A member of the RNA family "HDV ribozyme from F. prausnitzii" from Faecalibacterium prausnitzii, 70 nucleotides long.
The family's consensus secondary structure is taken from published work.
It is one of the family's seed sequences.
Rfam links the family to the GO term catalytic activity.

RNA sequence: GCCAUCCGAAAAUGCUGCCUCUACGUGGCGGAUGGCAGGCAACGAGAGUUUCCUCUCGGCUAAAGCAUAU
Numbered sequence: 001g002c003c004a005u006c007c008g009a010a011a012a013u014g015c016u017g018c019c020u021c022u023a024c025g026u027g028g029c030g031g032a033u034g035g036c037a038g039g040c041a042a043c044g045a046g047a048g049u050u051u052c053c054u055c056u057c058g059g060c061u062a063a064a065g066c067a068u069a070u
Stems, first nucleotide, its partner, number of pairs: 001036007017029003043058005